The record is an 82-nucleotide sequence from Prunus yedoensis, which matches "MIR397 microRNA precursor family" in Rfam. Rfam links the family to the GO terms miRNA-mediated post-transcriptional gene silencing and RISC complex. It scores 66 bits against the family's covariance model. The family's consensus secondary structure was predicted with WAR. On this family, see Wu et al., Plant Cell 2009: "Rice MicroRNA effector complexes and targets".
RNA sequence: GAUAGAAACAUAAUUGGGUGCAGCGCUGAUGAAAUUUCGGAAGAAUUUCAAUUCAUCAACGCUGCACUCAAUGAUGUUUCUU
Dot-bracket structure: .....((((((.(((((((((((((.((.(((....................))).)).))))))))))))).))))))...